Small nucleolar RNA snoR100: a 108-nucleotide RNA sequence from Rhododendron williamsianum.
A search with the family's covariance model found it, with a score of 82 bits.
The family has 9 seed sequences and 1,851 matches in Rfam 15.1.
Its family is annotated with RNA processing and nucleolus in the Gene Ontology.
A reference for the family is Marker et al. (2002), "Experimental RNomics: identification of 140 candidates for small non-messenger RNAs in the plant Arabidopsis thaliana", Curr Biol.

[Rfam]
RNA sequence: CAAUGAAGGACGCAUGGUAAUGUGCACAGAAAUUAAAUUGGGUCUCUAGGCCUGCCCUCUCUGAUGGUAUUUGGCUUUGAUUAGUGGGUAUGGCCCGGCAACAAAACA
Numbered sequence: 001c002a003a004u005g006a007a008g009g010a011c012g013c014a015u016g017g018u019a020a021u022g023u024g025c026a027c028a029g030a031a032a033u034u035a036a037a038u039u040g041g042g043u044c045u046c047u048a049g050g051c052c053u054g055c056c057c058u059c060u061c062u063g064a065u066g067g068u069a070u071u072u073g074g075c076u077u078u079g080a081u082u083a084g085u086g087g088g089u090a091u092g093g094c095c096c097g098g099c100a101a102c103a104a105a106a107c108a
Stems, first nucleotide, its partner, number of pairs: 012025004040091001042089003050081001052079001054075003